[Rfam]
A member of the RNA family "mir-34 microRNA precursor family" from Zootermopsis nevadensis, 71 nucleotides long. Human mir-34a was discovered computationally and later experimentally verified. The mature sequence is excised from the 5' arm of the hairpin. On this family, see Lim et al., Science 2003: "Vertebrate microRNA genes".
RNA sequence: GGCACAGUGGCAGUGUGGUUAGCUGGUUGUGUAGCAUGAGUCACUGCCACUAUCCUCACUGCCCUUGUGAC
Numbered sequence: 001g002g003c004a005c006a007g008u009g010g011c012a013g014u015g016u017g018g019u020u021a022g023c024u025g026g027u028u029g030u031g032u033a034g035c036a037u038g039a040g041u042c043a044c045u046g047c048c049a050c051u052a053u054c055c056u057c058a059c060u061g062c063c064c065u066u067g068u069g070a071c
Stems, first nucleotide, its partner, number of pairs: 003069004009063002012060004017055002020052003024049004029044003